[Rfam]
RNA sequence: AUUUUGAAAAUGAUUCUACCUAAGACUCAGGCGGCAAAUGCCUUAAUAUUACCUGGCGAGGAAUUUGAGUGAAUAAUUUUACUUUAAAACUUUCUCUAUGUCUUGGUGGACAUAGGGUUUUUUUAAACCCUGA
Numbered sequence: 001a002u003u004u005u006g007a008a009a010a011u012g013a014u015u016c017u018a019c020c021u022a023a024g025a026c027u028c029a030g031g032c033g034g035c036a037a038a039u040g041c042c043u044u045a046a047u048a049u050u051a052c053c054u055g056g057c058g059a060g061g062a063a064u065u066u067g068a069g070u071g072a073a074u075a076a077u078u079u080u081a082c083u084u085u086a087a088a089a090c091u092u093u094c095u096c097u098a099u100g101u102c103u104u105g106g107u108g109g110a111c112a113u114a115g116g117g118u119u120u121u122u123u124u125a126a127a128c129c130c131u132g133a
Stems, first nucleotide, its partner, number of pairs: 028055004033042003094117009
RNA: Ribosomal protein L10 leader
Organism: Liquorilactobacillus oeni